RNA sequence: AUGUAGUGUAGCAUGCCCGUUUGGUGCUUAACUCUGAUGUUUAUGUUAUAUUUAAUUACUUUUGGGUAACGAGGUGUUACACCUAA
Numbered sequence: 001a002u003g004u005a006g007u008g009u010a011g012c013a014u015g016c017c018c019g020u021u022u023g024g025u026g027c028u029u030a031a032c033u034c035u036g037a038u039g040u041u042u043a044u045g046u047u048a049u050a051u052u053u054a055a056u057u058a059c060u061u062u063u064g065g066g067u068a069a070c071g072a073g074g075u076g077u078u079a080c081a082c083c084u085a086a
Base pairs, nucleotide, nucleotide: 002086006082007081008080009079010078011077012076013075014074016073018071019070020069021068
The record is an 86-nucleotide RNA sequence from Medicago truncatula, which matches "MIR2617 microRNA precursor family" in Rfam. Rfam links the family to the GO terms miRNA-mediated post-transcriptional gene silencing and RISC complex.